Small nucleolar RNA ZL1: a 189-nucleotide RNA from Ceratopteris richardii. A search with the family's covariance model found it, with a score of 66 bits. On this family, see Kishore et al., Genome Biol 2013: "Insights into snoRNA biogenesis and processing from PAR-CLIP of snoRNA core proteins and small RNA sequencing". About the family: Host gene TRRAP. Predicted target U2@U47. Taxonomically the source falls in Ceratopteris (Eukaryota, Viridiplantae, Euphyllophyta, Pteridineae).

[Rfam]
RNA sequence: GUGUAUGCAUGCAUGCAUGUGUAUGCAUGCAUGCAUGUGUAUGCAUGCAUGCAUGUGUAUGCAUGCAUGCAUGUGUAUGCAUGCAUGCAUGUGUAUGCAUGCAUGUAUGCAUGUGCAUGCAUGCAUGCAUGUAUGCAUAUGCAUUCAUGUAUGCAUAUGCAUUCAUGUAUGCAUAUGCAUGUAUGCAUA
Dot-bracket structure: ((...(((........(((.((.....((((.(.(.((((((((((((........(((((....)))))........)))))))))))).).).)))).((((......))))..((((((......)))))).((((.((((......)))).)))).)).)))..........)))...)).....
Numbered sequence: 001g002u003g004u005a006u007g008c009a010u011g012c013a014u015g016c017a018u019g020u021g022u023a024u025g026c027a028u029g030c031a032u033g034c035a036u037g038u039g040u041a042u043g044c045a046u047g048c049a050u051g052c053a054u055g056u057g058u059a060u061g062c063a064u065g066c067a068u069g070c071a072u073g074u075g076u077a078u079g080c081a082u083g084c085a086u087g088c089a090u091g092u093g094u095a096u097g098c099a100u101g102c103a104u105g106u107a108u109g110c111a112u113g114u115g116c117a118u119g120c121a122u123g124c125a126u127g128c129a130u131g132u133a134u135g136c137a138u139a140u141g142c143a144u145u146c147a148u149g150u151a152u153g154c155a156u157a158u159g160c161a162u163u164c165a166u167g168u169a170u171g172c173a174u175a176u177g178c179a180u181g182u183a184u185g186c187a188u189a
Stems, first nucleotide, its partner, number of pairs: 001184002006179003017166003021162002028099004033094001035092001037090012057070005101114004117134006136159004141154004